RNA: Purine riboswitch aptamer
Organism: Neobacillus piezotolerans
RNA sequence: UGUGGAUUUUUAAUUUUGCUUCGUAUAAUACUGGGGAUAUGGCCCAGAAGUUUCUACCGAGCUGCCGUAAAUAGCUUGACUACGAAGUAUGUAAGAAUAAAG
Numbered sequence: 001u002g003u004g005g006a007u008u009u010u011u012a013a014u015u016u017u018g019c020u021u022c023g024u025a026u027a028a029u030a031c032u033g034g035g036g037a038u039a040u041g042g043c044c045c046a047g048a049a050g051u052u053u054c055u056a057c058c059g060a061g062c063u064g065c066c067g068u069a070a071a072u073a074g075c076u077u078g079a080c081u082a083c084g085a086a087g088u089a090u091g092u093a094a095g096a097a098u099a100a101a102g
Stems, first nucleotide, its partner, number of pairs: 018088008029049001031047005058078007
Dot-bracket structure: .................((((((((...(.(((((.......))))).)........(((((((.......)))))))..))))))))..............